[Rfam]
RNA sequence: AUGCUGUGAUGAUGGUUUCACAUCCAGCUGAGUUUCAGAGAUGACCCUUUCUCUUCAGCUGUCUGAGCAU
Numbered sequence: 001a002u003g004c005u006g007u008g009a010u011g012a013u014g015g016u017u018u019c020a021c022a023u024c025c026a027g028c029u030g031a032g033u034u035u036c037a038g039a040g041a042u043g044a045c046c047c048u049u050u051c052u053c054u055u056c057a058g059c060u061g062u063c064u065g066a067g068c069a070u
Base pairs, nucleotide, nucleotide: 001070002069003068004067
Rfam assigns this 70-nucleotide RNA from Peromyscus maniculatus to the family "Small nucleolar RNA SNORD53/SNORD92". The organism belongs to Peromyscus maniculatus, within Eukaryota. The pairing is the family consensus, mapped onto this sequence. On this family, see Kiss-Laszlo et al., Cell 1996: "Site-specific ribose methylation of preribosomal RNA: a novel function for small nucleolar RNAs". It is annotated as a C/D-box small nucleolar RNA. A search with the family's covariance model found it, with a score of 56 bits. Rfam 15.1 lists 2,250 matches to the family in 671 species.